[Rfam]
The family of this 258-nucleotide part of an RNA from Coccidioides posadasii is "Eukaryotic large subunit ribosomal RNA".
Lineage of the source: Eukaryota > Fungi > Pezizomycotina > Coccidioides > Coccidioides posadasii.
RNA sequence: AGUGAGCUAUUUUUGGUAAGGAGAACUGGUAAUGCAGGAUGAACUGAAUAUAAGAUUAAGAUGCUGGAAUACAUACUCAUCAGACACCACAAAAAAUAUUAGUUCAUCUAAAUAGCUUAAUGGUGGCCAUGGAAGUCAGAAUCUGCUAAGAAGUAUGUAACAACUCAUAAGCUGAAUAAACUAGUCCUGAAAAUGAAUGGUGCUCAAGUGUACUAUUUAUAUCUCAUCAUUGGGAUAGAAACAAAGCUCUGAUGAGUA
Numbered sequence: 001a002g003u004g005a006g007c008u009a010u011u012u013u014u015g016g017u018a019a020g021g022a023g024a025a026c027u028g029g030u031a032a033u034g035c036a037g038g039a040u041g042a043a044c045u046g047a048a049u050a051u052a053a054g055a056u057u058a059a060g061a062u063g064c065u066g067g068a069a070u071a072c073a074u075a076c077u078c079a080u081c082a083g084a085c086a087c088c089a090c091a092a093a094a095a096a097u098a099u100u101a102g103u104u105c106a107u108c109u110a111a112a113u114a115g116c117u118u119a120a121u122g123g124u125g126g127c128c129a130u131g132g133a134a135g136u137c138a139g140a141a142u143c144u145g146c147u148a149a150g151a152a153g154u155a156u157g158u159a160a161c162a163a164c165u166c167a168u169a170a171g172c173u174g175a176a177u178a179a180a181c182u183a184g185u186c187c188u189g190a191a192a193a194u195g196a197a198u199g200g201u202g203c204u205c206a207a208g209u210g211u212a213c214u215a216u217u218u219a220u221a222u223c224u225c226a227u228c229a230u231u232g233g234g235a236u237a238g239a240a241a242c243a244a245a246g247c248u249c250u251g252a253u254g255a256g257u258a
Stems, first nucleotide, its partner, number of pairs: 006030004011025004035046003050227002053224002056221001060217003069214001074210003094188001098185007106177002115172005121145003127139001146150001156163001228254007236246001